[Rfam]
RNA sequence: GGGAGUAGAUGGGUGCUGGUGUGCCCUCUGGUCUUCAAAACCAGUAAUAGCGGUUAGGAGCCGCUUAGGUGGGUUCGAUUCCCACAUACUCCC
Numbered sequence: 001g002g003g004a005g006u007a008g009a010u011g012g013g014u015g016c017u018g019g020u021g022u023g024c025c026c027u028c029u030g031g032u033c034u035u036c037a038a039a040a041c042c043a044g045u046a047a048u049a050g051c052g053g054u055u056a057g058g059a060g061c062c063g064c065u066u067a068g069g070u071g072g073g074u075u076c077g078a079u080u081c082c083c084a085c086a087u088a089c090u091c092c093c
Base pairs, nucleotide, nucleotide: 001093002092003091004090005089006088007087008085011026012025013024014023015022016021028044029043030042031041032040049065050064051063070084071083072082073081